The family of this 113-nucleotide RNA sequence from Flagellimonas ochracea is "Bacteroidete tryptophan peptide leader RNA".
The family's consensus secondary structure is taken from published work.
[Rfam]
RNA sequence: UCCUUUCUAUCUUUGAUGCAAUGAAGAAUCACAUAGCAAAUACAUGGUGGUGGAUUAACUUACGUCGAACGUCGUGAGCUAAGUCCCCAUUAUAACCAUAUAAGAGGCUUGUC
Numbered sequence: 001u002c003c004u005u006u007c008u009a010u011c012u013u014u015g016a017u018g019c020a021a022u023g024a025a026g027a028a029u030c031a032c033a034u035a036g037c038a039a040a041u042a043c044a045u046g047g048u049g050g051u052g053g054a055u056u057a058a059c060u061u062a063c064g065u066c067g068a069a070c071g072u073c074g075u076g077a078g079c080u081a082a083g084u085c086c087c088c089a090u091u092a093u094a095a096c097c098a099u100a101u102a103a104g105a106g107g108c109u110u111g112u113c
Base pairs, nucleotide, nucleotide: 036101038099041094042093044091047088049087050086052084056081057080059078060077061076062072063071064070
Lineage of the source: Bacteria > Pseudomonadati > Bacteroidota > Flavobacteriia > Flagellimonas. By type it is a cis-regulatory leader.